The record is a 72-nucleotide RNA sequence from Lachnospira eligens, which matches "tRNA" in Rfam. From the family's description: Transfer RNA (tRNA) molecules are approximately 80 nucleotides in length. Gene Ontology term of the family: triplet codon-amino acid adaptor activity.
[Rfam]
RNA sequence: GCUAUUGUAGCUCAGGGGUAGAGCACUUCAUUGGUAAUGAAGAGGUCACGGGUUCAAUUCCCGUCAAUAGCU
Numbered sequence: 001g002c003u004a005u006u007g008u009a010g011c012u013c014a015g016g017g018g019u020a021g022a023g024c025a026c027u028u029c030a031u032u033g034g035u036a037a038u039g040a041a042g043a044g045g046u047c048a049c050g051g052g053u054u055c056a057a058u059u060c061c062c063g064u065c066a067a068u069a070g071c072u
Stems, first nucleotide, its partner, number of pairs: 001071007010024004026042005048064005